[Rfam]
RNA: sul1 RNA
RNA sequence: CAUGGACCCGGUGAGAGACCGGGUGGCUCUUCCGGCCGCCGAUCCGCCGGACAAUA
Numbered sequence: 001c002a003u004g005g006a007c008c009c010g011g012u013g014a015g016a017g018a019c020c021g022g023g024u025g026g027c028u029c030u031u032c033c034g035g036c037c038g039c040c041g042a043u044c045c046g047c048c049g050g051a052c053a054a055u056a
Stems, first nucleotide, its partner, number of pairs: 006024006012017001031051006